Shown here is a 76-nucleotide RNA sequence from Calothrix sp. 336/3, a member of the family "Cyano-1 RNA". Pairs were carried over by alignment from the consensus structure, which is taken from published work. The source organism's lineage runs through Bacteria, Cyanobacteriota, Nostocales, Calotrichaceae and Calothrix.

RNA sequence: UCGUGUGUGAGGAGCAAGUGUAAAUCAAAGAGCGUCUGGGGUGGAAACAAGGUAACACUCCCAGGCGUUUUUUGUU
Number, nucleotide and partner (000 for none) at each position: 001u000002c000003g000004u000005g000006u000007g000008u000009g000010a000011g000012g000013a000014g000015c000016a000017a000018g000019u000020g000021u000022a000023a000024a000025u000026c000027a000028a000029a071030g070031a069032g068033c067034g000035u000036c064037u063038g062039g061040g060041g058042u057043g056044g000045a000046a000047a000048c000049a000050a000051g000052g000053u000054a000055a000056c043057a042058c041059u000060c040061c039062c038063a037064g036065g000066c000067g033068u032069u031070u030071u029072u000073u000074g000075u000076u000